[Rfam]
Shown here is a 181-nucleotide RNA from Thiospirochaeta perfilievii, a member of the family "6S / SsrS RNA". Rfam classes the family as a non-coding RNA gene. From the family's description: E. coli 6S RNA was the first non coding RNA to be sequenced, but its function was unknown until recently. It consists of 184 nucleotides that fold into an extended hairpin structure with a large single-stranded internal bulge. The 6S RNA specifically associates with RNA polymerase holoenzyme containing the sigma70 specificity factor. This interaction represses expression from a sigma70-dependent promoter during stationary phase. 6S RNA homologs have recently been identified in most bacterial genomes. Many Gram-positive species have two copies of 6S RNA. In Bacillus subtilis, both copies appear to interact with RNA polymerase holoenzyme containing the housekeeping sigma factor and be expressed during different stages of growth. In many proteobacteria, 6S RNA may be processed from a transcript encoding homologs of the E. coli YgfA protein which is a putative 5-formyltetrahydrofolate cycloligase activity. The match comes from Rfam's covariance-model search (58 bits). The family has 150 seed sequences and 5,006 matches in Rfam 15.1. Pairs were carried over by alignment from the consensus structure, which is taken from published work. The organism belongs to Thiospirochaeta, within Bacteria.
RNA sequence: AAGUGCCUGGGAUGCUCGUUUGUGCAGUGAUAUUCUCUUUCUACAAAACAAAACUACGGGAUUCCUACUCUUUAAAACUGAAUUGUUAGCCUUUAUGGUGAAACAGGAUGUUUAAAUAGGAAGCCCACUUGAACAAAUGAGUUCAAGAGAAUAAAUCGCUGGACGGCAUUUUGGGUAAAUU
Numbered sequence: 001a002a003g004u005g006c007c008u009g010g011g012a013u014g015c016u017c018g019u020u021u022g023u024g025c026a027g028u029g030a031u032a033u034u035c036u037c038u039u040u041c042u043a044c045a046a047a048a049c050a051a052a053a054c055u056a057c058g059g060g061a062u063u064c065c066u067a068c069u070c071u072u073u074a075a076a077a078c079u080g081a082a083u084u085g086u087u088a089g090c091c092u093u094u095a096u097g098g099u100g101a102a103a104c105a106g107g108a109u110g111u112u113u114a115a116a117u118a119g120g121a122a123g124c125c126c127a128c129u130u131g132a133a134c135a136a137a138u139g140a141g142u143u144c145a146a147g148a149g150a151a152u153a154a155a156u157c158g159c160u161g162g163a164c165g166g167c168a169u170u171u172u173g174g175g176u177a178a179a180u181u
Base pairs, nucleotide, nucleotide: 004177005176006175007174008173009172010171011170012169013168014167015166017165018164019163034150035149036148037147038145041141042140058126059125060124062122063121064120065119066118067117069116072115073114074113075112077111078110085104086103090100